[Rfam]
mir-2007 microRNA precursor family: an 87-nucleotide RNA sequence from Lytechinus variegatus. The base pairs follow the family's consensus structure, which was predicted with RNAalifold. Gene Ontology terms of the family: miRNA-mediated post-transcriptional gene silencing and RISC complex. The organism belongs to Lytechinus, within Eukaryota. The sequence is in the family's curated seed alignment.

RNA sequence: GCAUCAUGCAUUAUUUCAGGCAGUAUACUGGUAAAGGGUUUUUGCACCAUUCUUACCAGUUGCCACCUGAAAUUAAUGUAAGAUGUG
Numbered sequence: 001g002c003a004u005c006a007u008g009c010a011u012u013a014u015u016u017c018a019g020g021c022a023g024u025a026u027a028c029u030g031g032u033a034a035a036g037g038g039u040u041u042u043u044g045c046a047c048c049a050u051u052c053u054u055a056c057c058a059g060u061u062g063c064c065a066c067c068u069g070a071a072a073u074u075a076a077u078g079u080a081a082g083a084u085g086u087g
Stems, first nucleotide, its partner, number of pairs: 001086005007080007014072007023063003027060008037048003
Dot-bracket structure: (((((.((((((((((((((..(((.((((((((..(((......)))....)))))))))))..))))))).))))))).))))).